[Rfam]
RNA: mir-290 microRNA precursor family
RNA sequence: GUGGCACUCAAAUGUGGAAGCACUCUUCUGAGAUCAGCAUGGAAAGUGCUACCAUAUUUGAGUGUCAC
Number, nucleotide and partner (000 for none) at each position: 001g000002u000003g000004g065005c064006a063007c062008u061009c060010a059011a058012a057013u000014g055015u054016g053017g052018a000019a050020g049021c048022a047023c046024u045025c000026u044027u043028c042029u000030g000031a000032g000033a000034u000035c000036a000037g000038c000039a000040u000041g000042g028043a027044a026045a024046g023047u022048g021049c020050u019051a000052c017053c016054a015055u014056a000057u012058u011059u010060g009061a008062g007063u006064g005065u004066c000067a000068c000